[Rfam]
RNA: Bacterial small subunit ribosomal RNA, nucleotides 1 to 577
RNA sequence: UUUUUGAAGGGUUUGAUCUUGGCUCAGAACGAACGCUGGCGGCGUGGAUUAGGCAUGCAAGUCGAACGAGGAUAUAUCCUUCGGGAUAUAAGCCGAGUGGCAUAAGGGUGAGCAAUGCAUAGAUUACCUACCUUUAGGAUAAGGGCAACUUUGUGAAAACGGAGCUAAUACUUAAUAAUACAAAAGAAAAUAAUUUUCUUUUGUCAAAGGGAGGGUAGCAAUACCUUUCGCCUAGAGAGGGGUUUAUGUCCUAUCAGCUUGUUGGUGGGGUAAUAGCCUACCAAGGCAAAGACGGGUAGCCGGUUUAAGAGGAUGGUCGGCCACACUGGGACUGAGACACUGCCCAGACUUCUACGGAAGGCUGCAGUCGAGAAUCUUUCGCAAUGCCCGAAAGGGUGACGAAGCGACGCCGCGUGGGUGAAGAAGGCCUUCGGGUUGUAAAGCCCUGUCAGGAGUUAUGAAAUGUGAGUGCGCUAAUACUGUGCUUAUUUGACAAAGGCUCCAAAGGAAGUCACGGCUAACUCUGUGCCAGCAGCCGCGGUAAUACAGAGGUGGCGAGCGUUGUUCGGAAUUAUUG
Numbered sequence: 001u002u003u004u005u006g007a008a009g010g011g012u013u014u015g016a017u018c019u020u021g022g023c024u025c026a027g028a029a030c031g032a033a034c035g036c037u038g039g040c041g042g043c044g045u046g047g048a049u050u051a052g053g054c055a056u057g058c059a060a061g062u063c064g065a066a067c068g069a070g071g072a073u074a075u076a077u078c079c080u081u082c083g084g085g086a087u088a089u090a091a092g093c094c095g096a097g098u099g100g101c102a103u104a105a106g107g108g109u110g111a112g113c114a115a116u117g118c119a120u121a122g123a124u125u126a127c128c129u130a131c132c133u134u135u136a137g138g139a140u141a142a143g144g145g146c147a148a149c150u151u152u153g154u155g156a157a158a159a160c161g162g163a164g165c166u167a168a169u170a171c172u173u174a175a176u177a178a179u180a181c182a183a184a185a186g187a188a189a190a191u192a193a194u195u196u197u198c199u200u201u202u203g204u205c206a207a208a209g210g211g212a213g214g215g216u217a218g219c220a221a222u223a224c225c226u227u228u229c230g231c232c233u234a235g236a237g238a239g240g241g242g243u244u245u246a247u248g249u250c251c252u253a254u255c256a257g258c259u260u261g262u263u264g265g266u267g268g269g270g271u272a273a274u275a276g277c278c279u280a281c282c283a284a285g286g287c288a289a290a291g292a293c294g295g296g297u298a299g300c301c302g303g304u305u306u307a308a309g310a311g312g313a314u315g316g317u318c319g320g321c322c323a324c325a326c327u328g329g330g331a332c333u334g335a336g337a338c339a340c341u342g343c344c345c346a347g348a349c350u351u352c353u354a355c356g357g358a359a360g361g362c363u364g365c366a367g368u369c370g371a372g373a374a375u376c377u378u379u380c381g382c383a384a385u386g387c388c389c390g391a392a393a394g395g396g397u398g399a400c401g402a403a404g405c406g407a408c409g410c411c412g413c414g415u416g417g418g419u420g421a422a423g424a425a426g427g428c429c430u431u432c433g434g435g436u437u438g439u440a441a442a443g444c445c446c447u448g449u450c451a452g453g454a455g456u457u458a459u460g461a462a463a464u465g466u467g468a469g470u471g472c473g474c475u476a477a478u479a480c481u482g483u484g485c486u487u488a489u490u491u492g493a494c495a496a497a498g499g500c501u502c503c504a505a506a507g508g509a510a511g512u513c514a515c516g517g518c519u520a521a522c523u524c525u526g527u528g529c530c531a532g533c534a535g536c537c538g539c540g541g542u543a544a545u546a547c548a549g550a551g552g553u554g555g556c557g558a559g560c561g562u563u564g565u566u567c568g569g570a571a572u573u574a575u576u577g
Stems, first nucleotide, its partner, number of pairs: 009025005027567004032563006039413006045406002052369003056366003061101003066098002070094002073090007108324003117249008127241002132237007140174004149164006180204007188197003209229006250296003257287003262284008299321004303314004326347005349360004377403001379402003385398005416446004426437004450508001452503005460494001466488007511556005522551005532539002